[Rfam]
Rfam assigns this 74-nucleotide RNA from Orthoflavivirus nilense to the family "Flavivirus DB element". The family's consensus secondary structure is taken from published work. It is annotated as a cis-regulatory element. The organism belongs to Orthoflavivirus nilense, within Viruses. Rfam links the family to the GO term translation. A reference for the family is Chiu et al. (2005), "Control of translation by the 5'- and 3'-terminal regions of the dengue virus genome", J Virol.
RNA sequence: ACGCGGCCCAAGCCCCGGUAAUGGUGUUAACCAGGGCGAAAGGACUAGAGGUUAGAGGAGACCCCGCGGUUUAA
Number, nucleotide and partner (000 for none) at each position: 001a000002c068003g067004c066005g065006g064007c043008c042009c000010a000011a000012g000013c036014c035015c034016c000017g032018g031019u030020a000021a000022u000023g000024g000025u000026g000027u000028u000029a000030a019031c018032c017033a000034g015035g014036g013037c000038g000039a000040a000041a000042g008043g007044a000045c000046u000047a000048g000049a000050g063051g062052u061053u060054a000055g000056a000057g000058g000059a000060g053061a052062c051063c050064c006065c005066g004067c003068g002069g000070u000071u000072u000073a000074a000